[Rfam]
RNA sequence: GCGCGCGAUGGGGAUGGAGUUCCCCCGAAACCGCCGUGAUGGCUGAUGACUCCUACCGCGAU
Number, nucleotide and partner (000 for none) at each position: 001g000002c000003g000004c000005g000006c000007g000008a000009u000010g026011g025012g024013g023014a000015u000016g053017g052018a051019g050020u049021u048022c000023c013024c012025c011026c010027g000028a000029a000030a000031c000032c000033g043034c042035c041036g000037u000038g000039a000040u000041g035042g034043c033044u000045g000046a000047u000048g021049a020050c019051u018052c017053c016054u000055a000056c000057c000058g000059c000060g000061a000062u000